[Rfam]
RNA sequence: AAUCAACAUCAAGAGAACAGUGAAUACUGUCACCAACCGAGUGGGCAACACAACGGUGGUUUAGUAUGUGGACGGUCGUCAAAAUAAAAUGCAUCC
Dot-bracket structure: .....((((.....(.(((((....))))))(((..(((.((.[.....))..))).))).....)))).(((....)))...........]....
The family of this 96-nucleotide sequence from Maribellus luteus is "SAM-I/IV (S-adenosyl methionine) riboswitch aptamer".
The match comes from Rfam's covariance-model search (60 bits).
For this family Rfam cites "Structural basis for diversity in the SAM clan of riboswitches" (Trausch et al., PNAS, 2014).
Pairs were carried over by alignment from the consensus structure, which is taken from published work.
The source organism's lineage runs through Bacteria, Pseudomonadati, Marinilabiliales, Prolixibacteraceae and Maribellus.